[Rfam]
Rfam assigns this 100-nucleotide RNA sequence from Paucilactobacillus oligofermentans to the family "23S methyl RNA motif". The match comes from Rfam's covariance-model search (51 bits). Pairs were carried over by alignment from the consensus structure, which is taken from published work. Its family is annotated with regulation of gene expression in the Gene Ontology.

RNA sequence: CCUUUGGUAGCUAAUUUUGGCGUUGUCAGAACUGGUUAGCCAAAUGAAUUGCAUUAAAGUAGCGUUUCGCCGUGCCCAUACCGAAACCCUGCUUUUUUUA
Numbered sequence: 001c002c003u004u005u006g007g008u009a010g011c012u013a014a015u016u017u018u019g020g021c022g023u024u025g026u027c028a029g030a031a032c033u034g035g036u037u038a039g040c041c042a043a044a045u046g047a048a049u050u051g052c053a054u055u056a057a058a059g060u061a062g063c064g065u066u067u068c069g070c071c072g073u074g075c076c077c078a079u080a081c082c083g084a085a086a087c088c089c090u091g092c093u094u095u096u097u098u099u100a
Base pairs, nucleotide, nucleotide: 003044004043005042006041007040008038009037010036011035012034013033015031016030017029018028019027056095057094058093059092060091061090062089064087065086066085067084068083069082072081073080074079